Shown here is an 85-nucleotide RNA from a Desulfobacteraceae bacterium, a member of the family "c-di-GMP-I riboswitch aptamer". Pairs were carried over by alignment from the consensus structure, which is taken from published work. A search with the family's covariance model found it, with a score of 64 bits.
RNA sequence: AAAGUGAAAGGGCAAACUCGUUGAAAAGCUGAGACGCAAAGCCAUAGGUCUAAAGCUGAAAAGCCAUGACAGUAUGGUUGCCGAA
Numbered sequence: 001a002a003a004g005u006g007a008a009a010g011g012g013c014a015a016a017c018u019c020g021u022u023g024a025a026a027a028g029c030u031g032a033g034a035c036g037c038a039a040a041g042c043c044a045u046a047g048g049u050c051u052a053a054a055g056c057u058g059a060a061a062a063g064c065c066a067u068g069a070c071a072g073u074a075u076g077g078u079u080g081c082c083g084a085a
Stems, first nucleotide, its partner, number of pairs: 012037002018031001020029003040079004047073001048070003055064003